[Rfam]
RNA sequence: AGAGGCCCUCCGCGGCCGGGGUGGAACACUUGCCUUGUCGCCGUGGCGAUGAAGCAAGCAUUCCGCCAGACCACUCACGCUGCCCGC
Numbered sequence: 001a002g003a004g005g006c007c008c009u010c011c012g013c014g015g016c017c018g019g020g021g022u023g024g025a026a027c028a029c030u031u032g033c034c035u036u037g038u039c040g041c042c043g044u045g046g047c048g049a050u051g052a053a054g055c056a057a058g059c060a061u062u063c064c065g066c067c068a069g070a071c072c073a074c075u076c077a078c079g080c081u082g083c084c085c086g087c
Base pairs, nucleotide, nucleotide: 004084005083006082012074014072015071017069020067021066022065023064024063025062026061029058030057031056032055033054037050038049039048040047041046
The family of this 87-nucleotide RNA from Myotis brandtii is "mir-9195 microRNA precursor family". NCBI's taxonomy places the organism under Eukaryota, Craniata, Dipnotetrapodomorpha, Boreoeutheria, Myotis. A search with the family's covariance model found it, with a score of 91 bits.